[Rfam]
RNA sequence: GGUUGUAAGUGUGAGGCCAUAGCAGAAGCACUCAGUGUGUGGCCCUGUCAGAUUCUAAGGAAUCUGUGAAUUUUGGC
Dot-bracket structure: ............[.[[[[....((((((((.......)))]]]]]...(((((((....)))))))....)))))..